[Rfam]
RNA sequence: UUGGUUUAAAUUAUUGUGAGACUAUACUUUGGAAAUAUAACUCACACAAAAUGGUGGAACAUACAUUGAUUCCAUCUAA
Numbered sequence: 001u002u003g004g005u006u007u008a009a010a011u012u013a014u015u016g017u018g019a020g021a022c023u024a025u026a027c028u029u030u031g032g033a034a035a036u037a038u039a040a041c042u043c044a045c046a047c048a049a050a051a052u053g054g055u056g057g058a059a060c061a062u063a064c065a066u067u068g069a070u071u072c073c074a075u076c077u078a079a
Stems, first nucleotide, its partner, number of pairs: 001079004006074001009071005015065004022057003025053002028050004

Shown here is a 79-nucleotide RNA sequence from Medicago truncatula, a member of the family "MIR5269 microRNA precursor family". A search with the family's covariance model found it, with a score of 72 bits. The organism belongs to Medicago, within Eukaryota. Rfam links the family to the GO terms miRNA-mediated post-transcriptional gene silencing and RISC complex.